[Rfam]
FMN riboswitch aptamer (RFN element): a 219-nucleotide sequence from Calderihabitans maritimus.
It scores 102 bits against the family's covariance model.
RNA sequence: UGCAUCCUUCGGGGAAAGGUGAAAUUCCUUACCGGCGGUGAUCCUGUUACGGUCAGCCCGCGAGCCCGGCACUUACUAACAUUUUCAUCCUAUACCCGUAGAGAGUUUCAAGGUGAAGUUAUUCCUUUUCAUUAAAGCUAGGGUUGUAUCAGUAAGUGACGGGUUGACCUGGUGAAAAUCCAGGGCCGACAGUGAAAGUCUGGAGGGGAGAAGGAAGGC
Number, nucleotide and partner (000 for none) at each position: 001u000002g000003c217004a000005u215006c214007c213008u212009u211010c210011g000012g000013g000014g000015a000016a000017a029018g028019g027020u000021g000022a000023a000024a000025u000026u000027c019028c018029u017030u000031a199032c198033c188034g187035g061036c060037g059038g058039u000040g000041a000042u000043c000044c000045u000046g000047u000048u000049a000050c000051g000052g000053u000054c000055a000056g186057c185058c038059c037060g036061c035062g000063a000064g164065c163066c162067c161068g160069g000070c000071a000072c000073u000074u000075a000076c000077u000078a000079a000080c000081a000082u000083u000084u000085u000086c000087a000088u000089c000090c000091u000092a000093u000094a000095c000096c000097c000098g000099u000100a000101g000102a000103g000104a000105g000106u000107u000108u000109c000110a000111a000112g000113g000114u000115g000116a000117a000118g000119u000120u000121a000122u000123u000124c000125c000126u000127u000128u000129u000130c000131a000132u000133u000134a000135a000136a000137g000138c000139u000140a000141g000142g000143g000144u000145u000146g000147u000148a000149u000150c000151a000152g000153u000154a000155a000156g000157u000158g000159a000160c068161g067162g066163g065164u064165u000166g000167a000168c184169c183170u182171g181172g180173u000174g000175a000176a000177a000178a000179u000180c172181c171182a170183g169184g168185g057186c056187c034188g033189a000190c202191a201192g200193u000194g000195a000196a000197a000198g032199u031200c192201u191202g190203g000204a000205g000206g000207g000208g000209a000210g010211a009212a008213g007214g006215a005216a000217g003218g000219c000